About this RNA:
This 65-nucleotide RNA from Brenneria goodwinii belongs to the Rfam family "DnaX ribosomal frameshifting element". Taxonomically the source falls in Brenneria (Bacteria, Pseudomonadati, Pseudomonadota, Gammaproteobacteria). It is annotated as a frameshift element. From the family's description: This family represents a ribosomal frameshifting element found in the mRNA of the dnaX gene in E. coli. The dnaX gene has two encoded products tau and gamma which are produced in a 1:1 ratio. The gamma protein is synthesised due to programmed frameshifting and is shorter than tau. The match comes from Rfam's covariance-model search (49 bits).
Nucleotides: 065
Base pairs, nucleotide, nucleotide: 033060034059035058036057037056039054040053043049
Number, partner (000 for none) and nucleotide at each position: 001000a002000g003000c004000a005000g006000g007000g008000g009000g010000c011000a012000a013000c014000c015000c016000c017000g018000c019000c020000a021000a022000a023000a024000a025000a026000a027000g028000c029000u030000g031000a032000a033060c034059c035058g036057g037056c038000a039054g040053c041000g042000u043049c044000g045000a046000a047000u048000a049043g050000c051000g052000c053040g054039c055000g056037g057036c058035c059034g060033g061000c062000a063000a064000a065000c